[Rfam]
RNA sequence: UUCACGAACAGGCAAACCUGGAGCGAUCCAGGGACGCAAAGCCACGGGCCCCACGAGGGCAGCCGAGCCGUCGAA
Numbered sequence: 001u002u003c004a005c006g007a008a009c010a011g012g013c014a015a016a017c018c019u020g021g022a023g024c025g026a027u028c029c030a031g032g033g034a035c036g037c038a039a040a041g042c043c044a045c046g047g048g049c050c051c052c053a054c055g056a057g058g059g060c061a062g063c064c065g066a067g068c069c070g071u072c073g074a075a
Stems, first nucleotide, its partner, number of pairs: 012037002017032006041068002045065003048060003

Rfam assigns this 75-nucleotide sequence from Desulfuromonas soudanensis to the family "c-di-GMP-I riboswitch aptamer". It scores 56 bits against the family's covariance model.